Annotation: The record is a 182-nucleotide RNA from Aneurinibacillus danicus, which matches "6S / SsrS RNA" in Rfam. The source organism's lineage runs through Bacteria, Bacillota, Bacilli, Caryophanales and Aneurinibacillus. The family's consensus secondary structure is taken from published work. The match comes from Rfam's covariance-model search (103 bits).

[Rfam]
RNA sequence: AGAACCCUGCGAUGUGCGUGAGCGACCGUUUGUUUUGUACCAACACCAACAAAAUGGGGCUCCGAAGUUUCGCUGCAGCGCAGAAGCCGCCUUGCUGAAGCGGACCUGCAAAGCAGCGGACAGGUUCCCCACCUGCAAGAGCAGGUUCAAAACACUGGCAUCACGGCAUUCACGGGGUUCUU
Numbered sequence: 001a002g003a004a005c006c007c008u009g010c011g012a013u014g015u016g017c018g019u020g021a022g023c024g025a026c027c028g029u030u031u032g033u034u035u036u037g038u039a040c041c042a043a044c045a046c047c048a049a050c051a052a053a054a055u056g057g058g059g060c061u062c063c064g065a066a067g068u069u070u071c072g073c074u075g076c077a078g079c080g081c082a083g084a085a086g087c088c089g090c091c092u093u094g095c096u097g098a099a100g101c102g103g104a105c106c107u108g109c110a111a112a113g114c115a116g117c118g119g120a121c122a123g124g125u126u127c128c129c130c131a132c133c134u135g136c137a138a139g140a141g142c143a144g145g146u147u148c149a150a151a152a153c154a155c156u157g158g159c160a161u162c163a164c165g166g167c168a169u170u171c172a173c174g175g176g177g178u179u180c181u182u
Base pairs, nucleotide, nucleotide: 002180003179004178005177006176007175008174009173011171012169013168014167015166017165018164019163031154032153033152034151036149037148039146040145041144056130057129058128062124063123070119071118072117073116074115075114076113082107083106087103088102089101090100